The record is an 82-nucleotide RNA, which matches "chrB-a RNA" in Rfam.
[Rfam]
RNA sequence: CGCAUGGGGAUUGCGAUCUCCCCAUGAGGCGACAGCCAAAGCAUCGCGUCCUUCCACCGCCAAAGAGCGAGGACGCGCCAUG
Numbered sequence: 001c002g003c004a005u006g007g008g009g010a011u012u013g014c015g016a017u018c019u020c021c022c023c024a025u026g027a028g029g030c031g032a033c034a035g036c037c038a039a040a041g042c043a044u045c046g047c048g049u050c051c052u053u054c055c056a057c058c059g060c061c062a063a064a065g066a067g068c069g070a071g072g073a074c075g076c077g078c079c080a081u082g
Base pairs, nucleotide, nucleotide: 005024006023007022008021009020010019046076047075048074049073050072051071

Pairs were carried over by alignment from the consensus structure, which is taken from published work. The sequence is in the family's curated seed alignment.